[Rfam]
RNA sequence: UUCUCCGCUACGUCCCCUCGCGACUAAUGAAAACAUUUAGCUUAUUUUAUAAAGUGUUAAAUGCUUUCAUUAGCCGCGCGAAUUGUCGUAACUAGAGACUAAAUAACAAUCACCACAUUAAAACAUAACGACUAAUAUUAAAAAUAGCAAUUUCUUACUUGUCUAUCUUGUAGACUAGUAGAAAAGGGGCCAACAGGCCCCUUUCC
Numbered sequence: 001u002u003c004u005c006c007g008c009u010a011c012g013u014c015c016c017c018u019c020g021c022g023a024c025u026a027a028u029g030a031a032a033a034c035a036u037u038u039a040g041c042u043u044a045u046u047u048u049a050u051a052a053a054g055u056g057u058u059a060a061a062u063g064c065u066u067u068c069a070u071u072a073g074c075c076g077c078g079c080g081a082a083u084u085g086u087c088g089u090a091a092c093u094a095g096a097g098a099c100u101a102a103a104u105a106a107c108a109a110u111c112a113c114c115a116c117a118u119u120a121a122a123a124c125a126u127a128a129c130g131a132c133u134a135a136u137a138u139u140a141a142a143a144a145u146a147g148c149a150a151u152u153u154c155u156u157a158c159u160u161g162u163c164u165a166u167c168u169u170g171u172a173g174a175c176u177a178g179u180a181g182a183a184a185a186g187g188g189g190c191c192a193a194c195a196g197g198c199c200c201c202u203u204u205c206c
Base pairs, nucleotide, nucleotide: 001097002096003095004094007092010089011088012087019080020079021078022077024073025072026071027070028069029068030067031066032065102160186201187200188199189198190197191196
Overview
The record is a 206-nucleotide RNA from Proteus myxofaciens, which matches "SraG RNA" in Rfam. On this family, see Argaman et al., Curr Biol 2001: "Novel small RNA-encoding genes in the intergenic regions of Escherichia coli". A search with the family's covariance model found it, with a score of 80 bits. Rfam classes the family as a small RNA. Taxonomically the source falls in Proteus myxofaciens (Bacteria, Pseudomonadati, Gammaproteobacteria, Proteus). This RNA was discovered in E. coli during a large scale screen. Evidence was found for specific cleavage of this RNA.